Bacterial small signal recognition particle RNA: a 97-nucleotide sequence from Ectothiorhodospira magna.
[Rfam]
RNA sequence: CAUCGGUCCCCUCGCGACAAUAAACUGUGAACUCCGCCAGGCCCGGAAGGGAGCAACGGUAACAGUGGACUUGGGCGCCGGGGUGUGGCUGGUGCGG
Numbered sequence: 001c002a003u004c005g006g007u008c009c010c011c012u013c014g015c016g017a018c019a020a021u022a023a024a025c026u027g028u029g030a031a032c033u034c035c036g037c038c039a040g041g042c043c044c045g046g047a048a049g050g051g052a053g054c055a056a057c058g059g060u061a062a063c064a065g066u067g068g069a070c071u072u073g074g075g076c077g078c079c080g081g082g083g084u085g086u087g088g089c090u091g092g093u094g095c096g097g
Base pairs, nucleotide, nucleotide: 004091005090006089007088008087010083011082012081013080014079015075018073019072020071024066025065026064027063028062034059035058036057042051043050044049
Taxonomically the source falls in Ectothiorhodospira (Bacteria, Gammaproteobacteria, Chromatiales, Ectothiorhodospiraceae). Its family is annotated with SRP-dependent cotranslational protein targeting to membrane, signal sequence recognition and signal recognition particle, plasma membrane targeting in the Gene Ontology.